Shown here is an 84-nucleotide sequence from Clostridium thermosuccinogenes, a member of the family "c-di-GMP-I riboswitch aptamer". The match comes from Rfam's covariance-model search (83 bits). From the family's description: GEMM was predicted in a large-scale screen for bacterial structured RNA regulatory elements.
RNA sequence: UUAUGAAAAGGGUAAACCUGCCGAAAGGCAGGGGCACAAAGCUGCGGGUCUAAGGUGUUGCACUAUGACAGCCGGGCUACCAUA
Numbered sequence: 001u002u003a004u005g006a007a008a009a010g011g012g013u014a015a016a017c018c019u020g021c022c023g024a025a026a027g028g029c030a031g032g033g034g035c036a037c038a039a040a041g042c043u044g045c046g047g048g049u050c051u052a053a054g055g056u057g058u059u060g061c062a063c064u065a066u067g068a069c070a071g072c073c074g075g076g077c078u079a080c081c082a083u084a
Stems, first nucleotide, its partner, number of pairs: 012037002017032006040078004045074003048069003055063003